[Rfam]
RNA: Group II catalytic intron D1-D4-3
RNA sequence: UCAUCGGUGACGAUGAAACUGAAGUAAGCCAGACUUCGGUGUUUGUACUGAAGAAUAUGAACUACAUACAGAGGCUAUGAGGCCGGAUGAGGUAACCACAUCUGCCGAAGUCCAGCACUCUUUAUAGGGAUAGUACCGAAGUAGUAAAUGCAGCAGGGAUAGACACAAGGAUAUUCAC
Numbered sequence: 001u002c003a004u005c006g007g008u009g010a011c012g013a014u015g016a017a018a019c020u021g022a023a024g025u026a027a028g029c030c031a032g033a034c035u036u037c038g039g040u041g042u043u044u045g046u047a048c049u050g051a052a053g054a055a056u057a058u059g060a061a062c063u064a065c066a067u068a069c070a071g072a073g074g075c076u077a078u079g080a081g082g083c084c085g086g087a088u089g090a091g092g093u094a095a096c097c098a099c100a101u102c103u104g105c106c107g108a109a110g111u112c113c114a115g116c117a118c119u120c121u122u123u124a125u126a127g128g129g130a131u132a133g134u135a136c137c138g139a140a141g142u143a144g145u146a147a148a149u150g151c152a153g154c155a156g157g158g159a160u161a162g163a164c165a166c167a168a169g170g171a172u173a174u175u176c177a178c
Stems, first nucleotide, its partner, number of pairs: 001016006028178001031175002035171002040165006046158001048156003062153002065150003074145003078141001082137001085113004091106004